Small nucleolar RNA snoR14: a 90-nucleotide RNA from Kalanchoe fedtschenkoi. Rfam links the family to the GO terms nucleolus and RNA processing.

RNA sequence: AUGAGGUGAAGAUGAAAUUCAUAGGAUGUAAAUCCACUGAAACUUCACACUUUGUGAUGUUACUAGUGAAUCCCGACAGGUUCUGAUCAU
Numbered sequence: 001a002u003g004a005g006g007u008g009a010a011g012a013u014g015a016a017a018u019u020c021a022u023a024g025g026a027u028g029u030a031a032a033u034c035c036a037c038u039g040a041a042a043c044u045u046c047a048c049a050c051u052u053u054g055u056g057a058u059g060u061u062a063c064u065a066g067u068g069a070a071u072c073c074c075g076a077c078a079g080g081u082u083c084u085g086a087u088c089a090u
Base pairs, nucleotide, nucleotide: 001090002089003088004087
Source information
It scores 68 bits against the family's covariance model. The base pairs follow the family's consensus structure. Its Rfam clan is "SNORD110 clan". Taxonomically the source falls in Kalanchoe (Eukaryota, Streptophyta, eudicotyledons, Crassulaceae).